[Rfam]
RNA sequence: CCAAAUUUAGACUCAGUAUUUAUAUUUUUAAUUGACAUUUGGACUUCUCCUAAUCACCUCGGUUACAUAGCCGGGGUAUUU
Numbered sequence: 001c002c003a004a005a006u007u008u009a010g011a012c013u014c015a016g017u018a019u020u021u022a023u024a025u026u027u028u029u030a031a032u033u034g035a036c037a038u039u040u041g042g043a044c045u046u047c048u049c050c051u052a053a054u055c056a057c058c059u060c061g062g063u064u065a066c067a068u069a070g071c072c073g074g075g076g077u078a079u080u081u
Stems, first nucleotide, its partner, number of pairs: 056077008

Photosynthesis regulatory RNA1: an 81-nucleotide RNA from Nostoc sp. PCC 7120 = FACHB-418. A reference for the family is Georg et al. (2014), "The small regulatory RNA SyR1/PsrR1 controls photosynthetic functions in cyanobacteria", Plant Cell. NCBI's taxonomy places the organism under Bacteria, Cyanobacteriota, Nostocales, Nostocaceae, Nostoc. By type it is a small RNA. Gene Ontology terms of the family: regulation of translation and regulation of photosynthesis. The base pairs follow the family's consensus structure, which was predicted with CMfinder. Rfam describes the family as follows. Formerly known as Syr1 discovered in Synechocystis sp PCC 6803, is a regulatory factor controlling photosynthetic functions. PsrR1 interacts with the ribosome binding regions of several photosynthesis-related mRNAs. In particular, psaL mRNA is processed by RNase E only in the presence of PsrR1.